[Rfam]
RNA sequence: GUUCCGUCUCCCCAGUGUUCAGACUACCUGUUCAGGAGGUUAAUGUUGUACAGUAGUCUGCACAUUGGUUAGACUGAGC
Numbered sequence: 001g002u003u004c005c006g007u008c009u010c011c012c013c014a015g016u017g018u019u020c021a022g023a024c025u026a027c028c029u030g031u032u033c034a035g036g037a038g039g040u041u042a043a044u045g046u047u048g049u050a051c052a053g054u055a056g057u058c059u060g061c062a063c064a065u066u067g068g069u070u071a072g073a074c075u076g077a078g079c
Base pairs, nucleotide, nucleotide: 012068013067014066015065016064017063018062020060021059022058023057024056025055026054028053029052030051031050033048034047
The record is a 79-nucleotide sequence from Petromyzon marinus, which matches "mir-199 microRNA precursor family" in Rfam. About the family: This family consists of the microRNA (miRNA) precursor mir-199 which appears to be specific to humans. Animal miRNAs are transcribed as ~70nt precursors and subsequently processed by the Dicer enzyme to give a ~22nt product. In this case the mature sequence comes from the 3' arm of the precursor. The extents of the hairpin precursors are not generally known and are estimated based on hairpin prediction. The literature on the family includes a 2002 paper in Genes Dev by Mourelatos et al., "miRNPs: a novel class of ribonucleoproteins containing numerous microRNAs". Its family is annotated with miRNA-mediated post-transcriptional gene silencing and RISC complex in the Gene Ontology.